[Rfam]
RNA sequence: GCUUAUUCUCAGGGCGGGGCGAAAUUCCCCACCGGCGGUAAAUCAGUUCGAAUCCAGCAGGAUGACUGAAAGCCCGCGAGCACUCCGGAUACCAUCCGGAGGUUAGCAGAUCCGGUGUAAUUCCGGAGCCGACGGUUAAAGUCCGGAUGGGAGAGGAUAACG
Number, nucleotide and partner (000 for none) at each position: 001g000002c000003u160004u159005a158006u157007u156008c155009u154010c153011a000012g000013g000014g000015c000016g000017g029018g028019g027020c000021g000022a000023a000024a000025u000026u000027c019028c018029c017030c000031a142032c141033c131034g130035g077036c076037g075038g074039u000040a000041a000042a000043u000044c000045a000046g000047u000048u000049c000050g000051a000052a000053u000054c000055c000056a000057g000058c000059a000060g000061g000062a000063u000064g000065a000066c000067u000068g000069a000070a000071a000072g129073c128074c038075c037076g036077c035078g000079a000080g107081c106082a000083c000084u000085c000086c000087g000088g000089a000090u000091a000092c000093c000094a000095u000096c000097c000098g000099g000100a000101g000102g000103u000104u000105a000106g081107c080108a000109g000110a000111u127112c126113c125114g124115g123116u000117g000118u000119a000120a000121u000122u000123c115124c114125g113126g112127a111128g073129c072130c034131g033132a000133c145134g144135g143136u000137u000138a000139a000140a000141g032142u031143c135144c134145g133146g000147a000148u000149g000150g000151g000152a000153g010154a009155g008156g007157a006158u005159a004160a003161c000162g000
Source information: The family of this 162-nucleotide sequence from Jejuibacter calystegiae is "FMN riboswitch aptamer (RFN element)". The base pairs follow the family's consensus structure, which is taken from published work. NCBI's taxonomy places the organism under Bacteria, Pseudomonadati, Pseudomonadota, Enterobacteriaceae, Jejuibacter.